A member of the RNA family "Plastid-rps12 3UTR RNA" from Capsicum annuum, 97 nucleotides long. The base pairs follow the family's consensus structure, which was predicted with LocARNA. The family has 1,299 seed sequences and 1,710 matches in Rfam 15.1. The family's RNA type in Rfam is cis-regulatory element. On this family, see Richter et al., Plant Commun 2023: "Retrograde signaling in plants: A critical review focusing on the GUN pathway and beyond". Plastid rpl20 is a non-coding RNA (ncRNA) recognised in plastids. It was found in the three prime untranslated region (3UTR) of rps12 gene, its 3UTR location sugest a role in transcript maduration.

[Rfam]
RNA sequence: UUAUCUAAUUGGUGUAAAUCCAAUCACCUGAAUUUAAGAUGAUAAGAAAUUCUCCAUUGGUAACAAAUGGUUAUCCAUUAAGCGGAGGAAAUCUUAU
Numbered sequence: 001u002u003a004u005c006u007a008a009u010u011g012g013u014g015u016a017a018a019u020c021c022a023a024u025c026a027c028c029u030g031a032a033u034u035u036a037a038g039a040u041g042a043u044a045a046g047a048a049a050u051u052c053u054c055c056a057u058u059g060g061u062a063a064c065a066a067a068u069g070g071u072u073a074u075c076c077a078u079u080a081a082g083c084g085g086a087g088g089a090a091a092u093c094u095u096a097u
Stems, first nucleotide, its partner, number of pairs: 009023004052087004056078002059075006